The family of this 122-nucleotide RNA from Verminephrobacter eiseniae is "Burkholderia RNA 11".
On this family, see Ramos et al., Genomics 2013: "Experimental identification of small non-coding regulatory RNAs in the opportunistic human pathogen Burkholderia cenocepacia J2315".
By type it is a small RNA.
Rfam's curators write: Co-purified with Hfq, expression confirmed by Northern blot.
Gene Ontology term of the family: protein binding.
The base pairs follow the family's consensus structure, which was predicted with RNAfold.
The match comes from Rfam's covariance-model search (76 bits).

RNA sequence: GCAACCUCCAACUGGCGCAGCAGAGUGUGGUGGUGUUCCGCUCGCUGCUGGGCAUUAGCUGGAUGUGGUUCUUUGGCGCGAUGUUUCUGUCGCAGUUUCCGAGCCUGGCCAAAGAGGUGCUG
Numbered sequence: 001g002c003a004a005c006c007u008c009c010a011a012c013u014g015g016c017g018c019a020g021c022a023g024a025g026u027g028u029g030g031u032g033g034u035g036u037u038c039c040g041c042u043c044g045c046u047g048c049u050g051g052g053c054a055u056u057a058g059c060u061g062g063a064u065g066u067g068g069u070u071c072u073u074u075g076g077c078g079c080g081a082u083g084u085u086u087c088u089g090u091c092g093c094a095g096u097u098u099c100c101g102a103g104c105c106u107g108g109c110c111a112a113a114g115a116g117g118u119g120c121u122g
Stems, first nucleotide, its partner, number of pairs: 010049001012047001014045001019042003023038006051121005060112001062110001067099002071095002074092005080087002
Dot-bracket structure: .........(.(.(....(((.((((((....)))))).)))..).).).(((((....(.(....((..((.(((((.((....))))))).))..))..........).)....))))).